[Rfam]
RNA sequence: AUAAAAGCAGGGCUCUGUUGCCUUCUGUGAACAGGGCUCUCGUAAACUUCAGGGAAAUUAUAUGCCUUGUUAUUGGGUGAACCUCUGUAACUAAUAGUGUCUGAAGGUUCAGUAAAUGAUGCUACAUAA
Numbered sequence: 001a002u003a004a005a006a007g008c009a010g011g012g013c014u015c016u017g018u019u020g021c022c023u024u025c026u027g028u029g030a031a032c033a034g035g036g037c038u039c040u041c042g043u044a045a046a047c048u049u050c051a052g053g054g055a056a057a058u059u060a061u062a063u064g065c066c067u068u069g070u071u072a073u074u075g076g077g078u079g080a081a082c083c084u085c086u087g088u089a090a091c092u093a094a095u096a097g098u099g100u101c102u103g104a105a106g107g108u109u110c111a112g113u114a115a116a117u118g119a120u121g122c123u124a125c126a127u128a129a
Stems, first nucleotide, its partner, number of pairs: 005049003011038002014035004065121001067119005078111007
The family of this 129-nucleotide sequence from Cucurbita maxima is "Small nucleolar RNA snoR74".
Taxonomically the source falls in Cucurbita (Eukaryota, eudicotyledons, Pentapetalae, Cucurbitales).
It is annotated as an H/ACA-box small nucleolar RNA.
The base pairs follow the family's consensus structure, which was predicted with WAR.